The record is a 50-nucleotide RNA sequence from Maritimibacter sp. 55A14, which matches "SAM/SAH riboswitch aptamer" in Rfam.
The base pairs follow the family's consensus structure, which is taken from published work.
A reference for the family is Weickhmann et al. (2019), "The structure of the SAM/SAH-binding riboswitch", Nucleic Acids Res.
Lineage of the source: Bacteria > Pseudomonadota > Alphaproteobacteria > Roseobacteraceae > Maritimibacter.
[Rfam]
RNA sequence: UGCCUGUCACAACGGCUUCCUGGCGUGACAGGGACAUUUCCAAUGGAGCA
Numbered sequence: 001u002g003c004c005u006g007u008c009a010c011a012a013c014g015g016c017u018u019c020c021u022g023g024c025g026u027g028a029c030a031g032g033g034a035c036a037u038u039u040c041c042a043a044u045g046g047a048g049c050a
Stems, first nucleotide, its partner, number of pairs: 004031007013022002015049003019046002